A member of the RNA family "SAM riboswitch aptamer (S box leader)" from bacterium 336/3, 101 nucleotides long. The family's consensus secondary structure is taken from published work. The match comes from Rfam's covariance-model search (81 bits).

[Rfam]
RNA sequence: GUUUUAUAAAGAAGCACGAAGAGAACAGGCUCUAAGAAGUGCUGGCAACCUGCUUAAGCAAGGUGCUAAUUCCUGCCUAAACUAUUUAGGAAAUAUAAAAC
Numbered sequence: 001g002u003u004u005u006a007u008a009a010a011g012a013a014g015c016a017c018g019a020a021g022a023g024a025a026c027a028g029g030c031u032c033u034a035a036g037a038a039g040u041g042c043u044g045g046c047a048a049c050c051u052g053c054u055u056a057a058g059c060a061a062g063g064u065g066c067u068a069a070u071u072c073c074u075g076c077c078u079a080a081a082c083u084a085u086u087u088a089g090g091a092a093a094u095a096u097a098a099a100a101c
Stems, first nucleotide, its partner, number of pairs: 001101008013043005021032003026075004044067004049063002051060003071093001076090006